[Rfam]
RNA sequence: GACAGGAAAGAUGGCAAUAUGUUGGCAUAGCAGGUUCUAGUUCAACAGCUAUGCCAGCAUCUUGCCUCCUCUCCAGGUC
Numbered sequence: 001g002a003c004a005g006g007a008a009a010g011a012u013g014g015c016a017a018u019a020u021g022u023u024g025g026c027a028u029a030g031c032a033g034g035u036u037c038u039a040g041u042u043c044a045a046c047a048g049c050u051a052u053g054c055c056a057g058c059a060u061c062u063u064g065c066c067u068c069c070u071c072u073c074c075a076g077g078u079c
Stems, first nucleotide, its partner, number of pairs: 005074003009070002013066005019060003023056009
RNA: mir-31 microRNA precursor family